[Rfam]
RNA sequence: UAGCGCGUCAUCUGGGGAGUAGCCAGCCGUUCCGCCUGACGGGACGGGCCAUGCGUCAACAUAUUUGGCCGAGAGGCCAUGGCGUAUGGGAUGUGGAAGACAUUCCGCAUC
Number, nucleotide and partner (000 for none) at each position: 001u000002a000003g000004c000005g000006c000007g000008u000009c000010a000011u000012c000013u000014g000015g000016g000017g000018a000019g000020u000021a000022g000023c000024c000025a000026g000027c047028c046029g045030u044031u043032c042033c000034g000035c000036c000037u000038g000039a000040c000041g000042g032043g031044a030045c029046g028047g027048g000049c089050c088051a087052u086053g085054c084055g083056u082057c081058a080059a000060c000061a000062u000063a000064u000065u000066u079067g078068g077069c076070c075071g000072a000073g000074a000075g070076g069077c068078c067079a066080u058081g057082g056083c055084g054085u053086a052087u051088g050089g049090g000091a000092u000093g000094u000095g000096g000097a000098a000099g000100a000101c000102a000103u000104u000105c000106c000107g000108c000109a000110u000111c000
This 111-nucleotide RNA from Sphingobium sp. CAP-1 belongs to the Rfam family "Manganese Mn2+ riboswitch aptamer (yybP-ykoY)". This RNA was originally discovered in E. coli during a large scale screen and was named SraF. The family was later found to exist upstream of related families of protein genes in many bacteria, including the the yybP and ykoK genes in B. subtilis. The specific functions of these proteins are unknown, but this structured RNA element may be involved in their genetic regulation as a riboswitch. The literature on the family includes a 2015 paper in Mol Cell by Price et al., "Mn(2+)-sensing mechanisms of yybP-ykoY orphan riboswitches". Its family is annotated with manganese ion binding in the Gene Ontology.